[Rfam]
A member of the RNA family "TPP riboswitch aptamer (THI element)" from Gulosibacter chungangensis, 91 nucleotides long. The family's consensus secondary structure is taken from published work. Vitamin B(1) in its active form thiamin pyrophosphate (TPP) is an essential coenzyme that is synthesised by coupling of pyrimidine and thiazole moieties in bacteria. The previously detected thiamin-regulatory element, thi box was extended, resulting in a new, highly conserved RNA secondary structure, the THI element, which is widely distributed in eubacteria and also occurs in some archaea.
RNA sequence: GCUCGCAACACGGGGUGCCCCACGGGGCUGAGAUCACACCCGAGAACCUGAACGAGUUAGGACUCGCGGAGGGAUGUUAUCGGUAGGUCCA
Numbered sequence: 001g002c003u004c005g006c007a008a009c010a011c012g013g014g015g016u017g018c019c020c021c022a023c024g025g026g027g028c029u030g031a032g033a034u035c036a037c038a039c040c041c042g043a044g045a046a047c048c049u050g051a052a053c054g055a056g057u058u059a060g061g062a063c064u065c066g067c068g069g070a071g072g073g074a075u076g077u078u079a080u081c082g083g084u085a086g087g088u089c090c091a
Base pairs, nucleotide, nucleotide: 007078008077009076010075011042012041013040014039016036017028018027019026020025047072048071049070053066054065055064056063